Record summary: The family of this 114-nucleotide sequence is "COG3610-DE RNA". Rfam classes the family as a small RNA.
RNA sequence: GAGUCGAUAAAGAACGCGAGAUGCGUAUAUUUAUCAGGGGACAUCUGCUUUUAAUAGCAAGGCACGGGAAGUGUUGAUGUUUUGGAAGACCUAUUGUGAACGUGGAAUUCCAAC
Numbered sequence: 001g002a003g004u005c006g007a008u009a010a011a012g013a014a015c016g017c018g019a020g021a022u023g024c025g026u027a028u029a030u031u032u033a034u035c036a037g038g039g040g041a042c043a044u045c046u047g048c049u050u051u052u053a054a055u056a057g058c059a060a061g062g063c064a065c066g067g068g069a070a071g072u073g074u075u076g077a078u079g080u081u082u083u084g085g086a087a088g089a090c091c092u093a094u095u096g097u098g099a100a101c102g103u104g105g106a107a108u109u110c111c112a113a114c
Base pairs, nucleotide, nucleotide: 006035007034008033009032010031011030014026015025016024017023040081041080042079043078044077045076046059047058048057049056061075062074063073064072065071084111085110086109091105092104093103094102
Dot-bracket structure: .....((((((..((((.....))))...))))))....((((((((((......)))).(((((.....)))))))))))..(((....((((.......))))...)))...